Shown here is a 115-nucleotide sequence from Dipodomys ordii, a member of the family "Small nucleolar RNA SNORA40".
Rfam classes the family as an H/ACA-box small nucleolar RNA.
The family has 28 seed sequences and 2,550 matches in Rfam 15.1.
RNA sequence: AGUUCUUGUUUGUCAUUGUUUAAUUUGUAACAAAGACAGGUGCAAAACAUAAAUCCUCCUUGUAAUCCAGGAUUCAUUGUUCAGUAUGAGUUUUGAUACAUGUAAGAAGUAUGAC
Number, nucleotide and partner (000 for none) at each position: 001a000002g043003u042004u000005c040006u039007u038008g037009u036010u000011u034012g000013u000014c000015a000016u033017u032018g031019u030020u000021u000022a000023a000024u029025u000026u000027g000028u000029a024030a019031c018032a017033a016034a011035g000036a009037c008038a007039g006040g005041u000042g003043c002044a000045a000046a000047a000048c000049a000050u000051a000052a000053a112054u111055c000056c109057u108058c000059c106060u105061u104062g103063u000064a000065a000066u000067c000068c095069a094070g093071g092072a091073u090074u089075c088076a087077u086078u000079g000080u000081u000082c000083a000084g000085u000086a077087u076088g075089a074090g073091u072092u071093u070094u069095g068096a000097u000098a000099c000100a000101u000102g000103u062104a061105a060106g059107a000108a057109g056110u000111a054112u053113g000114a000115c000
The organism belongs to Dipodomys, within Eukaryota. The base pairs follow the family's consensus structure, which was predicted with RNAalifold. Rfam's curators write: The snoRNA ACA 40 belongs to the H/ACA family of snoRNAs and guides the pseudouridylation of 28S rRNA subunit at position U4565. NB This family has a high threshold value to exclude a large number of closely related sequences that do not appear to have conserved H and ACA boxes, and may be pseudogenes.